[Rfam]
RNA sequence: GUGUUUGCAGCUGUGGCAUCAUCAAGAUUCACACACGGAUCGAUAUUCACUCGUCGAUCGAUCAGUUUGUCUUUCCCGGCCGCUGAGAAUCUUGAUGAUGCUGCAUCAGCAAAUAU
Dot-bracket structure: .........(.(((((((((((((((((((.((..................................................)).))))))))))))))))))).).........
Rfam assigns this 116-nucleotide sequence from Zingiber officinale to the family "mir-172 microRNA precursor family".
The family has 11 seed sequences and 2,076 matches in Rfam 15.1.
On this family, see Jones-Rhoades and Bartel, Mol Cell 2004: "Computational Identification of Plant MicroRNAs and Their Targets, Including a Stress-Induced miRNA".
Gene Ontology terms of the family: RISC complex and miRNA-mediated post-transcriptional gene silencing.
Rfam describes the family as follows. mir-172 has been experimentally verified in Arabidopsis thaliana. This family is thought to target mRNAs coding for APETALA2-like transcription factors. The mature sequence is excised from the 3' arm of the hairpin.
Taxonomically the source falls in Zingiber (Eukaryota, Embryophyta, Spermatophyta, Mesangiospermae).